[Rfam]
RNA sequence: AUAAGUUAAACACUUAAAAUAUGUCACUUCUUUAAUUAUAUGUAUUUGCCUCAAUAAGCCAUACAACCUUAGGCUUAUUCCAUUUGAGGUUGAUGUAUAUACUUAAAGGAGAUGACAUAUUUUAUGUGGUUAACUUAACU
Numbered sequence: 001a002u003a004a005g006u007u008a009a010a011c012a013c014u015u016a017a018a019a020u021a022u023g024u025c026a027c028u029u030c031u032u033u034a035a036u037u038a039u040a041u042g043u044a045u046u047u048g049c050c051u052c053a054a055u056a057a058g059c060c061a062u063a064c065a066a067c068c069u070u071a072g073g074c075u076u077a078u079u080c081c082a083u084u085u086g087a088g089g090u091u092g093a094u095g096u097a098u099a100u101a102c103u104u105a106a107a108g109g110a111g112a113u114g115a116c117a118u119a120u121u122u123u124a125u126g127u128g129g130u131u132a133a134c135u136u137a138a139c140u
Base pairs, nucleotide, nucleotide: 002137003136004135005134006133007132008131009130011128012127013126015124016123017122018121019120020119021118022117023116024115025114027111028110029109030108031107032106033105034104035103037101038100039099040098041097042096043095044094045093046092048090049089050088051087052086053085
RNA: MIR7993 microRNA precursor family
Organism: Anisodus acutangulus